[Rfam]
RNA sequence: AUAAUGAUACUUCUGUCCAGUCCUAAGGUCGAGCGAGAUAAAACCGUCACAGCCAAGGAGGGCAGCUCCGGGAGAUCCUCGGAGGGGUGAGAGUCCCAUGA
Numbered sequence: 001a002u003a004a005u006g007a008u009a010c011u012u013c014u015g016u017c018c019a020g021u022c023c024u025a026a027g028g029u030c031g032a033g034c035g036a037g038a039u040a041a042a043a044c045c046g047u048c049a050c051a052g053c054c055a056a057g058g059a060g061g062g063c064a065g066c067u068c069c070g071g072g073a074g075a076u077c078c079u080c081g082g083a084g085g086g087g088u089g090a091g092a093g094u095c096c097c098a099u100g101a
Stems, first nucleotide, its partner, number of pairs: 012098001013065006066084003070080003085097003